[Rfam]
RNA sequence: AGUGCGACGGGAUCGACCGCGCGCGUCACGACCAGGUAGUCGCGGAGCACGAUGCCGUGCCGGUUCUC
Numbered sequence: 001a002g003u004g005c006g007a008c009g010g011g012a013u014c015g016a017c018c019g020c021g022c023g024c025g026u027c028a029c030g031a032c033c034a035g036g037u038a039g040u041c042g043c044g045g046a047g048c049a050c051g052a053u054g055c056c057g058u059g060c061c062g063g064u065u066c067u068c
Base pairs, nucleotide, nucleotide: 005062006061008059009058013028015027016026017025035056036055037054038053040052041051042050044048
The family of this 68-nucleotide RNA from Antrihabitans cavernicola is "ASdes TB sRNA". The family's RNA type in Rfam is small RNA.